RNA sequence: AUAGCAAAGCGAUGACUGCCGAAGACAGCAGGUGCUUUGAAACAGCGUAAGUGGUGAUACACGCCUGCCGAGGAUGAUAUGAGAUUCGAUUUCUAUGAAUUUGUACAACCUCUGCGUCUUAUGGUCCAGGGGUUUUUAUUAUGUAUA
Number, nucleotide and partner (000 for none) at each position: 001a000002u000003a000004g000005c000006a000007a000008a000009g000010c000011g000012a000013u000014g000015a000016c000017u000018g000019c000020c000021g000022a000023a000024g000025a000026c000027a000028g068029c067030a066031g065032g064033u063034g046035c045036u044037u000038u000039g000040a000041a000042a000043c000044a036045g035046c034047g000048u000049a000050a000051g000052u000053g000054g000055u000056g000057a000058u000059a000060c000061a000062c000063g033064c032065c031066u030067g029068c028069c000070g000071a000072g000073g000074a000075u000076g000077a000078u000079a000080u000081g000082a000083g000084a000085u000086u000087c000088g000089a000090u000091u000092u000093c000094u000095a000096u000097g000098a000099a000100u000101u000102u000103g000104u000105a000106c000107a000108a000109c132110c131111u130112c129113u128114g127115c000116g125117u124118c123119u000120u000121a000122u000123g118124g117125u116126c000127c114128a113129g112130g111131g110132g109133u000134u000135u000136u000137u000138a000139u000140u000141a000142u000143g000144u000145a000146u000147a000
RNA: Ribosomal protein L10 leader
Organism: Dorea sp. D27